[Rfam]
RNA sequence: ACCGCCACGGAUGGCGGUGGUUAUAACAGAAGCGAUAUUUUGGCAUUGCCAAAAUUCGCCAUCAACCGAUGUACACGGAAGUUCAUCGGUUGAUGAGG
Numbered sequence: 001a002c003c004g005c006c007a008c009g010g011a012u013g014g015c016g017g018u019g020g021u022u023a024u025a026a027c028a029g030a031a032g033c034g035a036u037a038u039u040u041u042g043g044c045a046u047u048g049c050c051a052a053a054a055u056u057c058g059c060c061a062u063c064a065a066c067c068g069a070u071g072u073a074c075a076c077g078g079a080a081g082u083u084c085a086u087c088g089g090u091u092g093a094u095g096a097g098g
Base pairs, nucleotide, nucleotide: 001018002017003016004015005014006013033058034057035056037055038054039053040052041051042050043049044048061094062093063092064091065090066089067088068087069086070085071084073082074081

A member of the RNA family "TD-2 RNA" from Treponema vincentii, 98 nucleotides long. For this family Rfam cites "Identification of 22 candidate structured RNAs in bacteria using the CMfinder comparative genomics pipeline" (Weinberg et al., Nucleic Acids Res, 2007).